c-di-AMP riboswitch aptamer (ydaO/yuaA leader): a 197-nucleotide sequence from Paenibacillus swuensis.
RNA sequence: UUUCUUGUAUCGCUGAGUCUUCAGUAAUGGAGAGCGGGGGAACCAAAUGUACCCGGGAAUGGAGAAAUCCAUCCGGUUAUGUUGUUCCAUGGGGUGAAUACGGGGCUUGCAGCAUAUUUCAUGCGUAAGUAUCUGUUAGGGCGACUCUCACGUCCGAAUCCGUCAGCUAACCUCGUAAGCGUGCAGAGAGAGGUAAC
Number, nucleotide and partner (000 for none) at each position: 001u000002u000003u000004c000005u000006u000007g000008u000009a000010u000011c181012g180013c179014u178015g000016a000017g000018u033019c032020u031021u030022c029023a028024g000025u000026a000027a000028u023029g022030g021031a020032g019033a018034g176035c175036g174037g173038g172039g171040g000041a000042a000043c000044c091045a090046a000047a000048u000049g000050u000051a000052c000053c000054c000055g000056g000057g000058a000059a000060u000061g000062g000063a000064g000065a000066a000067a000068u000069c000070c000071a000072u000073c000074c000075g000076g000077u000078u000079a000080u000081g000082u000083u000084g000085u000086u000087c000088c000089a000090u045091g044092g161093g160094g159095u000096g000097a000098a000099u000100a136101c135102g134103g133104g000105g000106c000107u000108u000109g000110c000111a000112g000113c000114a000115u000116a000117u000118u000119u000120c000121a000122u000123g000124c000125g000126u000127a000128a000129g000130u000131a000132u000133c103134u102135g101136u100137u000138a000139g155140g154141g153142c152143g000144a000145c000146u000147c000148u000149c000150a000151c000152g142153u141154c140155c139156g000157a000158a000159u094160c093161c092162g000163u000164c000165a000166g000167c000168u000169a000170a000171c039172c038173u037174c036175g035176u034177a000178a014179g013180c012181g011182u000183g000184c000185a000186g000187a000188g000189a000190g000191a000192g000193g000194u000195a000196a000197c000